[Rfam]
Shown here is a 75-nucleotide RNA sequence from Lupinus angustifolius, a member of the family "Small nucleolar RNA Z105".

RNA sequence: UUGGCAUGGUGAUGAUGAAGUUUAUUGUCAUCUGAUAACUCAAAUGAUGAAUAAAACACCUCCUACUCAUUCUGA
Numbered sequence: 001u002u003g004g005c006a007u008g009g010u011g012a013u014g015a016u017g018a019a020g021u022u023u024a025u026u027g028u029c030a031u032c033u034g035a036u037a038a039c040u041c042a043a044a045u046g047a048u049g050a051a052u053a054a055a056a057c058a059c060c061u062c063c064u065a066c067u068c069a070u071u072c073u074g075a
Stems, first nucleotide, its partner, number of pairs: 006070004028050002032046001
Dot-bracket structure: .....((((..................((..(.............)..))................)))).....

A reference for the family is Chen et al. (2003), "The high diversity of snoRNAs in plants: identification and comparative study of 120 snoRNA genes from Oryza sativa", Nucleic Acids Res. Rfam classes the family as a C/D-box small nucleolar RNA. The family has 11 seed sequences and 621 matches in Rfam 15.1.